RNA sequence: CUACGGACUUAAAUAAUUGAGCCUUGUUAAAGAGAUUUAACAAGUGUAAGUUCUCAAAUUCAGGGAAUCCUAAGUCUUUGUUAAUCUAUGAUUUAGAUAAGGCAAUCCUGAGCCAAGCUUAUUCUUAUAAAAGAUUAGGAAGGUGCAGAGACUCGACGGGAACUACCCUGUAUUAAAUAAAGGGUAAAGAGAGAGUCCAAUUCUUAAAGUCUAAUUAGAU
Numbered sequence: 001c002u003a004c005g006g007a008c009u010u011a012a013a014u015a016a017u018u019g020a021g022c023c024u025u026g027u028u029a030a031a032g033a034g035a036u037u038u039a040a041c042a043a044g045u046g047u048a049a050g051u052u053c054u055c056a057a058a059u060u061c062a063g064g065g066a067a068u069c070c071u072a073a074g075u076c077u078u079u080g081u082u083a084a085u086c087u088a089u090g091a092u093u094u095a096g097a098u099a100a101g102g103c104a105a106u107c108c109u110g111a112g113c114c115a116a117g118c119u120u121a122u123u124c125u126u127a128u129a130a131a132a133g134a135u136u137a138g139g140a141a142g143g144u145g146c147a148g149a150g151a152c153u154c155g156a157c158g159g160g161a162a163c164u165a166c167c168c169u170g171u172a173u174u175a176a177a178u179a180a181a182g183g184g185u186a187a188a189g190a191g192a193g194a195g196u197c198c199a200a201u202u203c204u205u206a207a208a209g210u211c212u213a214a215u216u217a218g219a220u
Stems, first nucleotide, its partner, number of pairs: 005023001008021005027039001029037001049164005055158001060111006069102003073098001112144002118138002125132002148198001150197005166184004171179003204218004
This 220-nucleotide RNA from Candidatus Atelocyanobacterium thalassae belongs to the Rfam family "Group I catalytic intron". Rfam describes the family as follows. Group I catalytic introns are large self-splicing ribozymes. They catalyse their own excision from mRNA, tRNA and rRNA precursors in a wide range of organisms. Lineage of the source: Bacteria > Cyanophyceae > Chroococcales > Candidatus Atelocyanobacterium > Candidatus Atelocyanobacterium thalassae.